[Rfam]
RNA: Rhodo-rpoB RNA
RNA sequence: GGGUCGAGAGGUCGCCCUUGGGAAGGCGGCUUCGGAUGGACCUCCGACAAUCCGCUCUCACAGGGGAGGGCGCCGCGGCCCCGGCGGAGCCCCCC
Numbered sequence: 001g002g003g004u005c006g007a008g009a010g011g012u013c014g015c016c017c018u019u020g021g022g023a024a025g026g027c028g029g030c031u032u033c034g035g036a037u038g039g040a041c042c043u044c045c046g047a048c049a050a051u052c053c054g055c056u057c058u059c060a061c062a063g064g065g066g067a068g069g070g071c072g073c074c075g076c077g078g079c080c081c082c083g084g085c086g087g088a089g090c091c092c093c094c095c
Stems, first nucleotide, its partner, number of pairs: 001043005010031007066095001068093003071089001073087003